The record is a 109-nucleotide sequence from Phascolarctos cinereus, which matches "Vault RNA" in Rfam. The base pairs follow the family's consensus structure, which is taken from published work. By type it is a non-coding RNA gene. Rfam's curators write: This family of RNAs are found as part of the enigmatic vault ribonucleoprotein complex. The complex consists of a major vault protein (MVP), two minor vault proteins (VPARP and TEP1), and several small untranslated RNA molecules. It has been suggested that the vault complex is involved in drug resistance.

[Rfam]
RNA sequence: GAGCUGGCUUUAUCCCAGCAGUUCCUUUGAUGAGUUAACCUUGUUUCUUCUCCUUGGUGGUUCGAAUCCUGGGACCAUCCAGAAGCUGCAAGCACUUCCUGGCCCUCUA
Numbered sequence: 001g002a003g004c005u006g007g008c009u010u011u012a013u014c015c016c017a018g019c020a021g022u023u024c025c026u027u028u029g030a031u032g033a034g035u036u037a038a039c040c041u042u043g044u045u046u047c048u049u050c051u052c053c054u055u056g057g058u059g060g061u062u063c064g065a066a067u068c069c070u071g072g073g074a075c076c077a078u079c080c081a082g083a084a085g086c087u088g089c090a091a092g093c094a095c096u097u098c099c100u101g102g103c104c105c106u107c108u109a
Base pairs, nucleotide, nucleotide: 003103004102005101006100007099014092018089019088020087021086026066027065028064029063030062